Record summary: Rfam assigns this 162-nucleotide sequence from Bacillus sp. 1NLA3E to the family "glmS glucosamine-6-phosphate activated ribozyme aptamer". Rfam links the family to the GO terms catalytic activity and regulation of gene expression.
RNA sequence: CGAAUAUAAGAAGCGCCUGAACUAAUCAGAGUAGAUUAGUUGACGAGGAGGAGGUUUAUCGAACAUUCGGCGGAUGCCUCCCGGUUGAUGACGCACAACCGAAAUUCCUUUUUUCCAAAACACCGGGGUAACCUGAUGGACAAAAGAAAGGAACAUGCGCGA
Numbered sequence: 001c002g003a004a005u006a007u008a009a010g011a012a013g014c015g016c017c018u019g020a021a022c023u024a025a026u027c028a029g030a031g032u033a034g035a036u037u038a039g040u041u042g043a044c045g046a047g048g049a050g051g052a053g054g055u056u057u058a059u060c061g062a063a064c065a066u067u068c069g070g071c072g073g074a075u076g077c078c079u080c081c082c083g084g085u086u087g088a089u090g091a092c093g094c095a096c097a098a099c100c101g102a103a104a105u106u107c108c109u110u111u112u113u114u115c116c117a118a119a120a121c122a123c124c125g126g127g128g129u130a131a132c133c134u135g136a137u138g139g140a141c142a143a144a145a146g147a148a149a150g151g152a153a154c155a156u157g158c159g160c161g162a
Stems, first nucleotide, its partner, number of pairs: 020041008050081005059070004082101006106152007121138002124135004

It is annotated as a riboswitch.